Shown here is a 239-nucleotide sequence from Tepidimonas charontis, a member of the family "HNH endonuclease-associated RNA and ORF (HEARO) RNA". The match comes from Rfam's covariance-model search (98 bits). The family's consensus secondary structure is taken from published work.
[Rfam]
RNA sequence: GUCAAUCCUCCCCGCCCUAAAGGGCGGAGCUUGUGAAAGCAAGCUCGGUUGACCAGACCAUGCGCGAGCAAUCGCGCGACGUGUGAUGGAAGUGCGAAGACCCACCCGCAGAUGCUUCCUCAGUCUGCGGCUCUGGAAGAGAGGGAUGCAGACACGGCAAGGGAGCGCCACGAAACGGUCCCUCUCCUGGCGGGAAAACCGCCGAAGCUGCCAUCGCACACGGUCGAGGGGAGCGGUCC
Numbered sequence: 001g002u003c004a005a006u007c008c009u010c011c012c013c014g015c016c017c018u019a020a021a022g023g024g025c026g027g028a029g030c031u032u033g034u035g036a037a038a039g040c041a042a043g044c045u046c047g048g049u050u051g052a053c054c055a056g057a058c059c060a061u062g063c064g065c066g067a068g069c070a071a072u073c074g075c076g077c078g079a080c081g082u083g084u085g086a087u088g089g090a091a092g093u094g095c096g097a098a099g100a101c102c103c104a105c106c107c108g109c110a111g112a113u114g115c116u117u118c119c120u121c122a123g124u125c126u127g128c129g130g131c132u133c134u135g136g137a138a139g140a141g142a143g144g145g146a147u148g149c150a151g152a153c154a155c156g157g158c159a160a161g162g163g164a165g166c167g168c169c170a171c172g173a174a175a176c177g178g179u180c181c182c183u184c185u186c187c188u189g190g191c192g193g194g195a196a197a198a199c200c201g202c203c204g205a206a207g208c209u210g211c212c213a214u215c216g217c218a219c220a221c222g223g224u225c226g227a228g229g230g231g232a233g234c235g236g237u238c239c
Stems, first nucleotide, its partner, number of pairs: 001053007010029001012026001016023002030043004056225004061078005081219009091209001102136002106130008116233006139186009
Dot-bracket structure: (((((((..(.(...((....))..)..)((((......))))...)))))))..((((.(((((........)))))..(((((((((.(..........((..((((((((..[[[[[[.))))))))....))..(((((((((..............................)))))))))......................).)))))))))..))))..]]]]]]......